[Rfam]
RNA sequence: AAACAUCAUCAGGAGUGGUUUCAUAGUUGAAACCCGCCAACCGAGCCCAGAUAAAUCAGGGAAGCGGUGGUUAGAGCCUUAAACGCUAGAUGUGCCUAGGAAAAUAGGAAACACAAAGCCGCCUGA
Numbered sequence: 001a002a003a004c005a006u007c008a009u010c011a012g013g014a015g016u017g018g019u020u021u022c023a024u025a026g027u028u029g030a031a032a033c034c035c036g037c038c039a040a041c042c043g044a045g046c047c048c049a050g051a052u053a054a055a056u057c058a059g060g061g062a063a064g065c066g067g068u069g070g071u072u073a074g075a076g077c078c079u080u081a082a083a084c085g086c087u088a089g090a091u092g093u094g095c096c097u098a099g100g101a102a103a104a105u106a107g108g109a110a111a112c113a114c115a116a117a118g119c120c121g122c123c124u125g126a
Stems, first nucleotide, its partner, number of pairs: 007092004015035001017034007036071003041067003046061002095108004

Shown here is a 126-nucleotide RNA sequence, a member of the family "SAM-I/IV (S-adenosyl methionine) riboswitch aptamer".
On this family, see Weinberg et al., RNA 2008: "The aptamer core of SAM-IV riboswitches mimics the ligand-binding site of SAM-I riboswitches".